[Rfam]
RNA sequence: UUGCACUUUUUAACAAAAUUACCCGUGAGAUUAAUUGCGGUUGAACUUGUUUUUCGUGCUAGACUGAUGAUUCGCCCUUAUACAUAUUGGCUAACUUUCGGCUAAUCUUCACCGAAUUUAGUCAAGAAUUGGGUGGUACAAAU
Numbered sequence: 001u002u003g004c005a006c007u008u009u010u011u012a013a014c015a016a017a018a019u020u021a022c023c024c025g026u027g028a029g030a031u032u033a034a035u036u037g038c039g040g041u042u043g044a045a046c047u048u049g050u051u052u053u054u055c056g057u058g059c060u061a062g063a064c065u066g067a068u069g070a071u072u073c074g075c076c077c078u079u080a081u082a083c084a085u086a087u088u089g090g091c092u093a094a095c096u097u098u099c100g101g102c103u104a105a106u107c108u109u110c111a112c113c114g115a116a117u118u119u120a121g122u123c124a125a126g127a128a129u130u131g132g133g134u135g136g137u138a139c140a141a142a143u
Stems, first nucleotide, its partner, number of pairs: 003059004012051005019044003023040003028035001072136006089123006097116005
Background: Rfam assigns this 143-nucleotide RNA from Schizosaccharomyces pombe to the family "small nucleolar RNA snR93". It is annotated as an H/ACA-box small nucleolar RNA. Rfam links the family to the GO terms RNA processing and nucleolus. The base pairs follow the family's consensus structure, which was predicted with RNAalifold. Rfam's curators put it in the seed alignment.